[Rfam]
The record is a 115-nucleotide RNA from Helianthus annuus, which matches "Plastid-psbA-1 3UTR RNA" in Rfam. Plastid psbA-1 is a non-coding RNA (ncRNA) present in plastids. It was identified in inverted repeat sequences in the 3 prime untranslate region (3UTR) of photosystem II quinone-binding protein (psbA). Lineage of the source: Eukaryota > eudicotyledons > campanulids > Heliantheae alliance > Helianthus. It is annotated as a cis-regulatory element.
RNA sequence: UUUUUAUUUAUUAAUUAGAGAUAAGACUUUGGUCUGAUUGUAUAGGAGUUUUUGAACUAAAAAAAGGAGCAAUAGCUUCCCUCUUGAUAAAACAAGAGGGCGUUAUUGCUCCUUU
Numbered sequence: 001u002u003u004u005u006a007u008u009u010a011u012u013a014a015u016u017a018g019a020g021a022u023a024a025g026a027c028u029u030u031g032g033u034c035u036g037a038u039u040g041u042a043u044a045g046g047a048g049u050u051u052u053u054g055a056a057c058u059a060a061a062a063a064a065a066g067g068a069g070c071a072a073u074a075g076c077u078u079c080c081c082u083c084u085u086g087a088u089a090a091a092a093c094a095a096g097a098g099g100g101c102g103u104u105a106u107u108g109c110u111c112c113u114u115u
Stems, first nucleotide, its partner, number of pairs: 003021003007017001063115013078100002081098005